Shown here is a 77-nucleotide RNA sequence from Crocodylus porosus, a member of the family "Mammalian CPEB3 ribozyme". A search with the family's covariance model found it, with a score of 40 bits. The family's consensus secondary structure is taken from published work.
RNA sequence: AGUCACAAGCUUGAGACUGUAGCAGAAGUGUUCCUGGUGCAGCCACGCCAGAUUCCAAUGAAUCUGUGAAUUCUGCU
Numbered sequence: 001a002g003u004c005a006c007a008a009g010c011u012u013g014a015g016a017c018u019g020u021a022g023c024a025g026a027a028g029u030g031u032u033c034c035u036g037g038u039g040c041a042g043c044c045a046c047g048c049c050a051g052a053u054u055c056c057a058a059u060g061a062a063u064c065u066g067u068g069a070a071u072u073c074u075g076c077u
Base pairs, nucleotide, nucleotide: 013046015044017042018041021077022076023075024074025073026072027071028040029039030038049066050065051064052063053062054061055060